RNA sequence: AAUAUUUUCCGACUCCGAGCCUGUUUACCUAAGUCUUACGAUAAGAAAGAUAAGGUGGCAGAGCCUGUAAUAAGUUCGCUUAUUCAAUGGAUUGUUUAGAAAUGAACUGUCCACUCGUGUUUAGAAAGGUGUCCAAUGCAAACUAUC
Numbered sequence: 001a002a003u004a005u006u007u008u009c010c011g012a013c014u015c016c017g018a019g020c021c022u023g024u025u026u027a028c029c030u031a032a033g034u035c036u037u038a039c040g041a042u043a044a045g046a047a048a049g050a051u052a053a054g055g056u057g058g059c060a061g062a063g064c065c066u067g068u069a070a071u072a073a074g075u076u077c078g079c080u081u082a083u084u085c086a087a088u089g090g091a092u093u094g095u096u097u098a099g100a101a102a103u104g105a106a107c108u109g110u111c112c113a114c115u116c117g118u119g120u121u122u123a124g125a126a127a128g129g130u131g132u133c134c135a136a137u138g139c140a141a142a143c144u145a146u147c
Stems, first nucleotide, its partner, number of pairs: 003141001006138001011133003015129002019064002022061001025058005033051004067083004088113005094107005114124002
About this RNA:
A member of the RNA family "Molybdenum/Tungsten riboswitch aptamer (Moco RNA motif)" from Pasteurellaceae bacterium RH1A, 147 nucleotides long. The base pairs follow the family's consensus structure, which is taken from published work. The source organism's lineage runs through Bacteria, Pseudomonadati, Gammaproteobacteria, Pasteurellales and Pasteurellaceae. Rfam links the family to the GO terms regulation of gene expression, tungstate binding and molybdenum ion binding. A search with the family's covariance model found it, with a score of 74 bits.